[Rfam]
Record summary: The family of this 80-nucleotide RNA from Bactrocera dorsalis is "mir-315 microRNA precursor family". On this family, see Aravin et al., Dev Cell 2003: "The small RNA profile during Drosophila melanogaster development".

RNA sequence: UGUUUGUAUAAUUUUGAUUGUUGCUCAGAAAGCCCUUUAUUUGAGCAGGCUUUCGAGCAAUAAUUAAAACCAAACAAAAC
Number, nucleotide and partner (000 for none) at each position: 001u000002g000003u078004u077005u076006g075007u074008a000009u000010a000011a000012u069013u068014u067015u066016g065017a064018u063019u000020g061021u060022u059023g058024c057025u056026c055027a000028g054029a053030a052031a051032g050033c049034c048035c000036u000037u000038u000039a000040u000041u000042u000043g000044a000045g000046c000047a000048g034049g033050c032051u031052u030053u029054c028055g026056a025057g024058c023059a022060a021061u020062a000063a018064u017065u016066a015067a014068a013069a012070c000071c000072a000073a000074a007075c006076a005077a004078a003079a000080c000
A search with the family's covariance model found it, with a score of 80 bits.
Gene Ontology terms of the family: RISC complex and miRNA-mediated post-transcriptional gene silencing.
The family's consensus secondary structure was predicted with RNAalifold.